[Rfam]
RNA sequence: GGACUGUGAUGAUUUCAGUGUGAAAGGUCUCGUUCGUCGUAAUUGGCUUUUACAGGCCUUGACGACCAUCCACCCAUAUUCUGAGUCU
Numbered sequence: 001g002g003a004c005u006g007u008g009a010u011g012a013u014u015u016c017a018g019u020g021u022g023a024a025a026g027g028u029c030u031c032g033u034u035c036g037u038c039g040u041a042a043u044u045g046g047c048u049u050u051u052a053c054a055g056g057c058c059u060u061g062a063c064g065a066c067c068a069u070c071c072a073c074c075c076a077u078a079u080u081c082u083g084a085g086u087c088u
Stems, first nucleotide, its partner, number of pairs: 001088004045060002047055001